[Rfam]
RNA sequence: CUGUCUCUUGCUUCAAUAGUGUUUGAAUGAAACAG
Numbered sequence: 001c002u003g004u005c006u007c008u009u010g011c012u013u014c015a016a017u018a019g020u021g022u023u024u025g026a027a028u029g030a031a032a033c034a035g
Stems, first nucleotide, its partner, number of pairs: 001035004006031001008029001010028001012027005017021001
RNA: Iron response element I